[Rfam]
RNA sequence: AUGAGAACAUGGGGAGAGACUGUAAUCUACUGACUUAGAAUUGGUUAUAGAUGAAGCUUUACCUAGCUUUCCUACAGCGCCGAAGGAGCAAGCAUAUAUAUGUGAAUCUCUCAGGCAAAAAGACUCAUGUUUGACG
Number, nucleotide and partner (000 for none) at each position: 001a000002u000003g000004a000005g000006a131007a130008c129009a128010u127011g126012g125013g124014g000015a000016g000017a000018g000019a000020c077021u076022g075023u074024a000025a000026u000027c000028u000029a000030c000031u000032g000033a000034c000035u000036u000037a000038g000039a000040a000041u000042u000043g000044g000045u000046u000047a000048u000049a000050g000051a000052u000053g000054a000055a000056g000057c000058u000059u000060u000061a000062c000063c000064u000065a000066g000067c000068u000069u000070u000071c000072c000073u000074a023075c022076a021077g020078c000079g116080c115081c114082g112083a111084a000085g000086g110087a109088g108089c000090a000091a000092g103093c102094a000095u000096a000097u000098a000099u000100a000101u000102g093103u092104g000105a000106a000107u000108c088109u087110c086111u083112c082113a000114g081115g080116c079117a000118a000119a000120a000121a000122g000123a000124c013125u012126c011127a010128u009129g008130u007131u006132u000133g000134a000135c000136g000
The family of this 136-nucleotide sequence from Anaerobacillus alkaliphilus is "Glycine riboswitch aptamer". It scores 66 bits against the family's covariance model. NCBI's taxonomy places the organism under Bacteria, Bacillati, Bacillota, Bacillaceae, Anaerobacillus. The base pairs follow the family's consensus structure.